[Rfam]
RNA: c-di-AMP riboswitch aptamer (ydaO/yuaA leader)
Organism: Streptomyces sp. CC53
RNA sequence: AUAUGGCACCCACCCACCCACGUGUGGCAGGAGCGGGGGAACCAGGUAGUUCGCCGGACGGGAAUUCCCGGACGGCUCGGGGUGAAGUCGCGCCAACGCGCGGCCGGGCAGCUCCAGUCCGAACCCGACAGCUCACCUCGUAGGCGCCGGAGAGGAAUU
Numbered sequence: 001a002u003a004u005g006g007c008a009c010c011c012a013c014c015c016a017c018c019c020a021c022g023u024g025u026g027g028c029a030g031g032a033g034c035g036g037g038g039g040a041a042c043c044a045g046g047u048a049g050u051u052c053g054c055c056g057g058a059c060g061g062g063a064a065u066u067c068c069c070g071g072a073c074g075g076c077u078c079g080g081g082g083u084g085a086a087g088u089c090g091c092g093c094c095a096a097c098g099c100g101c102g103g104c105c106g107g108g109c110a111g112c113u114c115c116a117g118u119c120c121g122a123a124c125c126c127g128a129c130a131g132c133u134c135a136c137c138u139c140g141u142a143g144g145c146g147c148c149g150g151a152g153a154g155g156a157a158u159u
Base pairs, nucleotide, nucleotide: 011146013144014143019031033141034140035139036138037137038136043079080126081125082124088103089102090101091100106120107119108118109117